A member of the RNA family "Lysine riboswitch aptamer" from Lentihominibacter hominis, 175 nucleotides long.
[Rfam]
Nucleotides: 175
Stems, first nucleotide, its partner, number of pairs: 006170006016078006024070001032063005038058002082109004088103006110137002113134008139159007
Number, partner (000 for none) and nucleotide at each position: 001000a002000a003000a004000g005000u006170u007169g008168a009167u010166a011165g012000a013000g014000g015000u016078g017077c018076g019075g020074u021073a022000a023000a024070u025000a026000a027000c028000a029000g030000u031000a032063a033062u034061c035060g036059a037000a038058c039057u040000g041000a042000g043000g044000c045000g046000g047000c048000a049000g050000c051000c052000a053000a054000u055000g056000a057039a058038g059036u060035c061034g062033g063032u064000g065000a066000a067000a068000g069000g070024a071000g072000a073021u074020a075019c076018c077017g078016c079000c080000g081000a082109a083108g084107g085106a086000u087000c088103u089102u090101g091100u092099c093098a094000g095000g096000c097000a098093u099092g100091g101090c102089g103088g104000a105000u106085u107084u108083c109082u110137g111136g112000g113134a114133u115132a116131u117130g118129a119128u120127g121000a122000u123000a124000a125000c126000a127120c128119g129118u130117c131116a132115u133114a134113u135000a136111c137110u138000c139159c140158u141157g142156c143155u144154c145153a146000c147000a148000a149000a150000a151000u152000c153145u154144g155143a156142g157141c158140a159139g160000a161000g162000g163000c164000g165011c166010u167009a168008u169007c170006g171000g172000u173000c174000a175000a
Rfam 15.1 lists 3,224 matches to the family in 1,923 species. Rfam links the family to the GO term lysine biosynthetic process. Pairs were carried over by alignment from the consensus structure, which is taken from published work. Taxonomically the source falls in Lentihominibacter (Bacteria, Bacillati, Bacillota, Anaerovoracaceae).